[Rfam]
RNA: drum RNA
RNA sequence: AAGCAAUGACAUGUAAGGGCGUGCCGAUAUGCGCUGUUGCAUGGAGCUUUCGGGAGGGGUUGUGUAGUGAAACCUCAAAUCGGCUUAGGCUGAAAGGCUGAAAGAAAAUACACUGA
Numbered sequence: 001a002a003g004c005a006a007u008g009a010c011a012u013g014u015a016a017g018g019g020c021g022u023g024c025c026g027a028u029a030u031g032c033g034c035u036g037u038u039g040c041a042u043g044g045a046g047c048u049u050u051c052g053g054g055a056g057g058g059g060u061u062g063u064g065u066a067g068u069g070a071a072a073c074c075u076c077a078a079a080u081c082g083g084c085u086u087a088g089g090c091u092g093a094a095a096g097g098c099u100g101a102a103a104g105a106a107a108a109u110a111c112a113c114u115g116a
Stems, first nucleotide, its partner, number of pairs: 001049004011042006018035005024083004064111003088099004